[Rfam]
A member of the RNA family "ZMP/ZTP riboswitch aptamer (pfl RNA motif)" from Actinomadura verrucosospora, 82 nucleotides long. The base pairs follow the family's consensus structure, which is taken from published work. Lineage of the source: Bacteria > Bacillati > Actinomycetota > Thermomonosporaceae > Actinomadura.
RNA sequence: AGGGCGGGCCGUGACUGGCGCCUAGGGUGGAGCACCACCGGGGAGCGGCCCGACACCGCAGCCGUGCGCCUGGGCGAUCCAU
Numbered sequence: 001a002g003g004g005c006g007g008g009c010c011g012u013g014a015c016u017g018g019c020g021c022c023u024a025g026g027g028u029g030g031a032g033c034a035c036c037a038c039c040g041g042g043g044a045g046c047g048g049c050c051c052g053a054c055a056c057c058g059c060a061g062c063c064g065u066g067c068g069c070c071u072g073g074g075c076g077a078u079c080c081a082u
Stems, first nucleotide, its partner, number of pairs: 003054001005052008015042002017070005027038004061075003